About this RNA:
A member of the RNA family "Mammalian CPEB3 ribozyme" from Alligator mississippiensis, 75 nucleotides long. A search with the family's covariance model found it, with a score of 37 bits. The literature on the family includes a 2006 paper in Science by Salehi-Ashtiani et al., "A genomewide search for ribozymes reveals an HDV-like sequence in the human CPEB3 gene". Gene Ontology term of the family: RNA nuclease activity. Taxonomically the source falls in Alligator (Eukaryota, Amniota, Archelosauria, Archosauria).
RNA sequence: UUUUAAGUUCAAGGCCAUAGCAGAAGCAACCCUGGCACAGCCUGUCAGAUUCCAAUGAAAUCUGCAAAUUCUGCU
Numbered sequence: 001u002u003u004u005a006a007g008u009u010c011a012a013g014g015c016c017a018u019a020g021c022a023g024a025a026g027c028a029a030c031c032c033u034g035g036c037a038c039a040g041c042c043u044g045u046c047a048g049a050u051u052c053c054a055a056u057g058a059a060a061u062c063u064g065c066a067a068a069u070u071c072u073g074c075u
Stems, first nucleotide, its partner, number of pairs: 013042003019075007026038001046064006